[Rfam]
RNA sequence: GCGCCCUCAAUGCUACUAGCAACGCUCAAAAAUCACUGUACGACAAAUGACUAUAUUUUGUCACAGGAUUUUUGAGUGUUGCUAGUCGGAGAAGG
Numbered sequence: 001g002c003g004c005c006c007u008c009a010a011u012g013c014u015a016c017u018a019g020c021a022a023c024g025c026u027c028a029a030a031a032a033u034c035a036c037u038g039u040a041c042g043a044c045a046a047a048u049g050a051c052u053a054u055a056u057u058u059u060g061u062c063a064c065a066g067g068a069u070u071u072u073u074g075a076g077u078g079u080u081g082c083u084a085g086u087c088g089g090a091g092a093a094g095g
Base pairs, nucleotide, nucleotide: 005095006094007093013088015086016085017084018083019082020081021080022079023078024077025076027074028073029072030071031070032069033068034067036066037065038064039063042062043061044060045059046058
Dot-bracket structure: ....(((.....(.(((((((((((.((((((((.((((..(((((...........))))))))))))))))).))))))))))).)....)))
The family of this 95-nucleotide RNA from Caenorhabditis briggsae is "mir-249 microRNA precursor family". Gene Ontology terms of the family: miRNA-mediated post-transcriptional gene silencing and RISC complex. The source organism's lineage runs through Eukaryota, Opisthokonta, Metazoa, Rhabditina and Caenorhabditis. Rfam's curators put it in the seed alignment. The literature on the family includes a 2006 paper in Cell by Ruby et al., "Large-scale sequencing reveals 21U-RNAs and additional microRNAs and endogenous siRNAs in C. elegans".